[Rfam]
RNA: ALIL pseudoknot
RNA sequence: CGGAUAUUUCGCGAAGACGGAGCUCGACCGCCCACACAAGAAAUAGUUGAGUUUAUAGACACGCACCGGAAUGUAUAUGGAGUCGAGCCGAUCUGCAAAGUCUUACCGAUUGCUUCA
Numbered sequence: 001c002g003g004a005u006a007u008u009u010c011g012c013g014a015a016g017a018c019g020g021a022g023c024u025c026g027a028c029c030g031c032c033c034a035c036a037c038a039a040g041a042a043a044u045a046g047u048u049g050a051g052u053u054u055a056u057a058g059a060c061a062c063g064c065a066c067c068g069g070a071a072u073g074u075a076u077a078u079g080g081a082g083u084c085g086a087g088c089c090g091a092u093c094u095g096c097a098a099a100g101u102c103u104u105a106c107c108g109a110u111u112g113c114u115u116c117a
Stems, first nucleotide, its partner, number of pairs: 016032001018030003078117005089112002092109002095106001097104002